[Rfam]
RNA sequence: GAUAAACACUAGGGGGGCUGCCGGAAGCGGCGGCUGAGAGGAUUUUGUGUCUGACCCUUUGAACCCGAACUGGAUAAUACCAGCGUGGGGAAGUGCAGUUCACUGUAU
Numbered sequence: 001g002a003u004a005a006a007c008a009c010u011a012g013g014g015g016g017g018c019u020g021c022c023g024g025a026a027g028c029g030g031c032g033g034c035u036g037a038g039a040g041g042a043u044u045u046u047g048u049g050u051c052u053g054a055c056c057c058u059u060u061g062a063a064c065c066c067g068a069a070c071u072g073g074a075u076a077a078u079a080c081c082a083g084c085g086u087g088g089g090g091a092a093g094u095g096c097a098g099u100u101c102a103c104u105g106u107a108u
Stems, first nucleotide, its partner, number of pairs: 007095004011058004016052001017034005041051003064089004070083004
Background
Shown here is a 108-nucleotide RNA from Lentibacillus salicampi, a member of the family "TPP riboswitch aptamer (THI element)". The base pairs follow the family's consensus structure, which is taken from published work. A search with the family's covariance model found it, with a score of 79 bits. Rfam's curators write: Vitamin B(1) in its active form thiamin pyrophosphate (TPP) is an essential coenzyme that is synthesised by coupling of pyrimidine and thiazole moieties in bacteria. The previously detected thiamin-regulatory element, thi box was extended, resulting in a new, highly conserved RNA secondary structure, the THI element, which is widely distributed in eubacteria and also occurs in some archaea.